[Rfam]
RNA sequence: CCGUGCAGCCGGGGGAUUAGCGGUCCCCUGUACCUGAAAUCCGCUAUAGCAGGGGUGAUGUCCGGCUUAGGGCUUGUGCCUGUGUGGCUGCCCUUUAUAAGUGGCGUUGAAGUUUGGGUCUUACGCAACGGAUGUCUGCGAACCGUGUCAGGUUGGGAACAAAGCAGCACUAAGCAGAAUUUUCCGUGUGCCGUGAGGGUGCCUGGCGGAGUUAACUGUAAAGGUAACGCAUAUGGGUUUAUGUUCGAAGCAGGACGCACGG
Numbered sequence: 001c002c003g004u005g006c007a008g009c010c011g012g013g014g015g016a017u018u019a020g021c022g023g024u025c026c027c028c029u030g031u032a033c034c035u036g037a038a039a040u041c042c043g044c045u046a047u048a049g050c051a052g053g054g055g056u057g058a059u060g061u062c063c064g065g066c067u068u069a070g071g072g073c074u075u076g077u078g079c080c081u082g083u084g085u086g087g088c089u090g091c092c093c094u095u096u097a098u099a100a101g102u103g104g105c106g107u108u109g110a111a112g113u114u115u116g117g118g119u120c121u122u123a124c125g126c127a128a129c130g131g132a133u134g135u136c137u138g139c140g141a142a143c144c145g146u147g148u149c150a151g152g153u154u155g156g157g158a159a160c161a162a163a164g165c166a167g168c169a170c171u172a173a174g175c176a177g178a179a180u181u182u183u184c185c186g187u188g189u190g191c192c193g194u195g196a197g198g199g200u201g202c203c204u205g206g207c208g209g210a211g212u213u214a215a216c217u218g219u220a221a222a223g224g225u226a227a228c229g230c231a232u233a234u235g236g237g238u239u240u241a242u243g244u245u246c247g248a249a250g251c252a253g254g255a256c257g258c259a260c261g262g
Base pairs, nucleotide, nucleotide: 001262002261003260004259005258006257008056009055010054011029012028013027014026015025016024017023018022033053034052035051036050062254063253065251066250067249068248070246071245072244073243075241078238079237080236081235082234083233084232085231086230089226090225093223094222095221096220097219098218101216102215103213104212105211112207113206115205116204117203118202119201120197121196122195123194124193125192126188127187129186130185131184132183135178136177137176138175139174145170146169147168148167153162154161155160

The family of this 262-nucleotide RNA from Lachnospiraceae bacterium 3_1_57FAA_CT1 is "Bacterial large signal recognition particle RNA". It is annotated as a non-coding RNA gene. It scores 178 bits against the family's covariance model. Taxonomically the source falls in Lachnospiraceae (Bacteria, Bacillati, Bacillota, Clostridia).